Shown here is a 156-nucleotide sequence from Populus tomentosa, a member of the family "MIR2912 microRNA precursor family". Pairs were carried over by alignment from the consensus structure, which was predicted with RNAalifold. Lineage of the source: Eukaryota > Viridiplantae > Streptophytina > Embryophyta > Populus. The family has 2 seed sequences and 15,051 matches in Rfam 15.1. The match comes from Rfam's covariance-model search (110 bits).

[Rfam]
RNA sequence: UCUAGAACUCAAGAUAUGGGCUGAACACUGAACAGUGUUUAGACUGCAAGACAGAUUCGGACUUCUCCAUUGUUGCUGUAAUUUGGAGUUGAAAACGACCUUUUUAAAUCUUGGACUCCGCAUGAAAGUUAUAGGCCUAUAUCUUACCUUUUCAUC
Numbered sequence: 001u002c003u004a005g006a007a008c009u010c011a012a013g014a015u016a017u018g019g020g021c022u023g024a025a026c027a028c029u030g031a032a033c034a035g036u037g038u039u040u041a042g043a044c045u046g047c048a049a050g051a052c053a054g055a056u057u058c059g060g061a062c063u064u065c066u067c068c069a070u071u072g073u074u075g076c077u078g079u080a081a082u083u084u085g086g087a088g089u090u091g092a093a094a095a096c097g098a099c100c101u102u103u104u105u106a107a108a109u110c111u112u113g114g115a116c117u118c119c120g121c122a123u124g125a126a127a128g129u130u131a132u133a134g135g136c137c138u139a140u141a142u143c144u145u146a147c148c149u150u151u152u153c154a155u156c
Base pairs, nucleotide, nucleotide: 003154005152006151007150009146011145012144013143014142015141016140017139018138019137020136021134022133023132025130027129028128029127035123036122037121042118043117045115048112049111050110051109054105055104059100060099063097073087074086